[Rfam]
The family of this 299-nucleotide RNA from Opisthocomus hoazin is "7SK RNA". The family's RNA type in Rfam is non-coding RNA gene. Pairs were carried over by alignment from the consensus structure, which is taken from published work. Clan: 7SK clan. The organism belongs to Opisthocomus, within Eukaryota. A reference for the family is Blencowe (2002), "Transcription: surprising role for an elusive small nuclear RNA", Curr Biol. The match comes from Rfam's covariance-model search (259 bits). About the family: 7SK was discovered as an abundant small nuclear RNA in the mid-70s but a possible function has only recently been suggested. Two independent studies have found that 7SK RNA binds the CDK9/cyclin T complex (known as elongation factor P-TEFb).
RNA sequence: GGAUGUGAGGGCGAUCUGGCUGCGACAUCUGUCACCCCAUUGAUUGCCAGGGUUGAUUUGGCUGAUCUGGCUGGCUAGGCGGGUGUCCUCUUCCUCACUCACCGCUCCAGGUGCGUUCCUCCCGAAGCUGCGCGCUCGGUCGAAGAGGACAACCUUCCCCUAUAGAGGUGUACCGUUCAUUGGUCCAAGGGUAUAUGGUAGCUGCGCUCCCCAGCUAGAACCUCCAAACAAGCUCAAGGUCCAUUUGUAGGAGAACGUAGGGUAUUUUUUUAUUAUUUAGGGGACCUAAUAAAUGCUUA
Numbered sequence: 001g002g003a004u005g006u007g008a009g010g011g012c013g014a015u016c017u018g019g020c021u022g023c024g025a026c027a028u029c030u031g032u033c034a035c036c037c038c039a040u041u042g043a044u045u046g047c048c049a050g051g052g053u054u055g056a057u058u059u060g061g062c063u064g065a066u067c068u069g070g071c072u073g074g075c076u077a078g079g080c081g082g083g084u085g086u087c088c089u090c091u092u093c094c095u096c097a098c099u100c101a102c103c104g105c106u107c108c109a110g111g112u113g114c115g116u117u118c119c120u121c122c123c124g125a126a127g128c129u130g131c132g133c134g135c136u137c138g139g140u141c142g143a144a145g146a147g148g149a150c151a152a153c154c155u156u157c158c159c160c161u162a163u164a165g166a167g168g169u170g171u172a173c174c175g176u177u178c179a180u181u182g183g184u185c186c187a188a189g190g191g192u193a194u195a196u197g198g199u200a201g202c203u204g205c206g207c208u209c210c211c212c213a214g215c216u217a218g219a220a221c222c223u224c225c226a227a228a229c230a231a232g233c234u235c236a237a238g239g240u241c242c243a244u245u246u247g248u249a250g251g252a253g254a255a256c257g258u259a260g261g262g263u264a265u266u267u268u269u270u271u272a273u274u275a276u277u278u279a280g281g282g283g284a285c286c287u288a289a290u291a292a293a294u295g296c297u298u299a
Stems, first nucleotide, its partner, number of pairs: 001108003005102005011096001013093002018090002024087010035074002037070003042067004046062003117170001118168004122139004127135002140162001142160001147158003201274001203272001208264001210262003214258002222253004228248005